[Rfam]
This 54-nucleotide sequence from Acipenser ruthenus belongs to the Rfam family "UnaL2 LINE 3' element". From the family's description: The eel long interspersed element (LINE) UnaL2 and its partner short interspersed element (SINE) share a conserved 3' tail containing a stem-loop that is critical for their retrotransposition. Presumably, the first step of retrotransposition is the recognition of their 3' tails by UnaL2-encoded reverse transcriptase. The solution structure of a 17-nucleotide RNA derived from the 3' tail of UnaL2 was determined by NMR. The base pairs follow the family's consensus structure, which is taken from published work. Rfam classes the family as a cis-regulatory element.
RNA sequence: GCCUCAAGUCUCUGUAAGUCGCUUUGGAUAAAAGUGUCUGCUAAAAGACAAAAU
Numbered sequence: 001g002c003c004u005c006a007a008g009u010c011u012c013u014g015u016a017a018g019u020c021g022c023u024u025u026g027g028a029u030a031a032a033a034g035u036g037u038c039u040g041c042u043a044a045a046a047g048a049c050a051a052a053a054u
Stems, first nucleotide, its partner, number of pairs: 013043001014041003020036006